Rfam assigns this 93-nucleotide RNA sequence from Ricinus communis to the family "Small nucleolar RNA U61". Lineage of the source: Eukaryota > Tracheophyta > Spermatophyta > rosids > Ricinus. Gene Ontology terms of the family: nucleolus and RNA processing. It is annotated as a C/D-box small nucleolar RNA. A reference for the family is Brown et al. (2003), "Plant snoRNA database", Nucleic Acids Res.
RNA sequence: CAGCCGUGAUGAAAAAAACUUGUGUCCUUGAGACGGUUUUCUUAUAGAAAUCGUCUUUGACGGCAACACAACCCUCUAAGAAGUUCUGAGCUG
Numbered sequence: 001c002a003g004c005c006g007u008g009a010u011g012a013a014a015a016a017a018a019c020u021u022g023u024g025u026c027c028u029u030g031a032g033a034c035g036g037u038u039u040u041c042u043u044a045u046a047g048a049a050a051u052c053g054u055c056u057u058u059g060a061c062g063g064c065a066a067c068a069c070a071a072c073c074c075u076c077u078a079a080g081a082a083g084u085u086c087u088g089a090g091c092u093g
Base pairs, nucleotide, nucleotide: 001093002092003091004090